[Rfam]
RNA sequence: UUUGCGCGGGGUGAUGGCGUUCCACCUCUCCCAACCGCCAGCUUGAUAGUUAAGCGGCUGAUGACGCCUGGCAUACU
Number, nucleotide and partner (000 for none) at each position: 001u000002u000003u000004g000005c000006g000007c000008g000009g000010g026011g025012u024013g023014a000015u000016g068017g067018c066019g065020u064021u063022c000023c013024a012025c011026c010027u000028c000029u000030c000031c000032c000033a000034a000035c000036c000037g058038c057039c056040a000041g000042c000043u000044u000045g000046a000047u000048a000049g000050u000051u000052a000053a000054g000055c000056g039057g038058c037059u000060g000061a000062u000063g021064a020065c019066g018067c017068c016069u000070g000071g000072c000073a000074u000075a000076c000077u000
Rfam assigns this 77-nucleotide RNA from [Pantoea] beijingensis to the family "Fluoride riboswitch aptamer (crcB RNA motif)". The family's consensus secondary structure is taken from published work.